[Rfam]
This 134-nucleotide RNA from Erinaceus europaeus belongs to the Rfam family "Small nucleolar RNA SNORA13".
RNA sequence: AGCCUUUGUGUUGCCCAUUCACUUUCGGAAACUAGUGAAUGUGGUGUCAAAAAAGGCAUACAUUAACACUUAGCAGGCUUUUUCCUGCCUUUGAACUUGAUGUCAUGGGCUUAGGAACUGCCUAAGUAACAAUA
Dot-bracket structure: .((((((.((.((((((((((((..........)))))))).)))).))..))))))..........((((.((((......(((((.((..((........))...))..))))).))))..)))).......
Rfam's curators write: ACA13 is a member of the H/ACA class of snoRNA that guide the sites of modification of uridines to pseudouridines. The family's RNA type in Rfam is H/ACA-box small nucleolar RNA.